[Rfam]
RNA sequence: UUGUACCUCACAUGUAAGUCGCUUUGGAUAAAAGCAUCUGCUAAAUGACAAUGU
Numbered sequence: 001u002u003g004u005a006c007c008u009c010a011c012a013u014g015u016a017a018g019u020c021g022c023u024u025u026g027g028a029u030a031a032a033a034g035c036a037u038c039u040g041c042u043a044a045a046u047g048a049c050a051a052u053g054u
Base pairs, nucleotide, nucleotide: 013043014041015040016039021035022034023033024032025031
Shown here is a 54-nucleotide RNA from Channa argus, a member of the family "UnaL2 LINE 3' element".
On this family, see Baba et al., RNA 2004: "Solution structure of an RNA stem-loop derived from the 3' conserved region of eel LINE UnaL2".
Pairs were carried over by alignment from the consensus structure, which is taken from published work.
Rfam describes the family as follows. The eel long interspersed element (LINE) UnaL2 and its partner short interspersed element (SINE) share a conserved 3' tail containing a stem-loop that is critical for their retrotransposition. Presumably, the first step of retrotransposition is the recognition of their 3' tails by UnaL2-encoded reverse transcriptase. The solution structure of a 17-nucleotide RNA derived from the 3' tail of UnaL2 was determined by NMR.
Gene Ontology term of the family: transposition, RNA-mediated.